[Rfam]
RNA: U2 spliceosomal RNA
RNA sequence: UCACCACUCUGGCCUAUUGGCUUAGAUCAAGUGUAGUAUCUGUUCUUUUAGUCUUGAUCGACUAAACGCUAGCACUGCUAGCUAUCUCGAUUAUUCAAUCUUUGCCGCCCGGGUGGCCUGCUCCUCUGCUUGCACGAGCGGCUGCGAGAUGACGUUGCCACUGCAGUACUGGCUCAUGUCGUCGCGGGAU
Numbered sequence: 001u002c003a004c005c006a007c008u009c010u011g012g013c014c015u016a017u018u019g020g021c022u023u024a025g026a027u028c029a030a031g032u033g034u035a036g037u038a039u040c041u042g043u044u045c046u047u048u049u050a051g052u053c054u055u056g057a058u059c060g061a062c063u064a065a066a067c068g069c070u071a072g073c074a075c076u077g078c079u080a081g082c083u084a085u086c087u088c089g090a091u092u093a094u095u096c097a098a099u100c101u102u103u104g105c106c107g108c109c110c111g112g113g114u115g116g117c118c119u120g121c122u123c124c125u126c127u128g129c130u131u132g133c134a135c136g137a138g139c140g141g142c143u144g145c146g147a148g149a150u151g152a153c154g155u156u157g158c159c160a161c162u163g164c165a166g167u168a169c170u171g172g173c174u175c176a177u178g179u180c181g182u183c184g185c186g187g188g189a190u
Stems, first nucleotide, its partner, number of pairs: 008026003011022004047066006068082006113145006125136001127134002148183006157173003